[Rfam]
RNA sequence: AGUAUCAUGUGAUGAGACCUUCAUCAAUCUUAGGACACCUUCUGACACAGUGCCUAUUUUCCUGUGGAUGAGAAGGCUUUUAUAUUCUGAUGAUACA
Numbered sequence: 001a002g003u004a005u006c007a008u009g010u011g012a013u014g015a016g017a018c019c020u021u022c023a024u025c026a027a028u029c030u031u032a033g034g035a036c037a038c039c040u041u042c043u044g045a046c047a048c049a050g051u052g053c054c055u056a057u058u059u060u061c062c063u064g065u066g067g068a069u070g071a072g073a074a075g076g077c078u079u080u081u082a083u084a085u086u087c088u089g090a091u092g093a094u095a096c097a
Base pairs, nucleotide, nucleotide: 002096003095004094005093006092007091043049044048
RNA: Small nucleolar RNA snoR31/Z110/Z27